[Rfam]
c-di-AMP riboswitch aptamer (ydaO/yuaA leader): a 153-nucleotide sequence from Nocardioides sp. HDW12B. The match comes from Rfam's covariance-model search (77 bits).

RNA sequence: GCAGCCACCACGUCGAGUCCGCGCCUGGCGCGGAGCCGGGGAACCAUGUUCCUGGGGUGAAUCGGAGCAGUUCGCGCCCGUCGCGGACCUUCGUAGGGUCUCUUUGCCGCCCGAAUCCGUCAGCUAACCCGGUAGGCGCAGGACAAAGGAGAU
Numbered sequence: 001g002c003a004g005c006c007a008c009c010a011c012g013u014c015g016a017g018u019c020c021g022c023g024c025c026u027g028g029c030g031c032g033g034a035g036c037c038g039g040g041g042a043a044c045c046a047u048g049u050u051c052c053u054g055g056g057g058u059g060a061a062u063c064g065g066a067g068c069a070g071u072u073c074g075c076g077c078c079c080g081u082c083g084c085g086g087a088c089c090u091u092c093g094u095a096g097g098g099u100c101u102c103u104u105u106g107c108c109g110c111c112c113g114a115a116u117c118c119g120u121c122a123g124c125u126a127a128c129c130c131g132g133u134a135g136g137c138g139c140a141g142g143a144c145a146a147a148g149g150a151g152a153u
Stems, first nucleotide, its partner, number of pairs: 011138004018034007035133006045054002055118003063093004096112004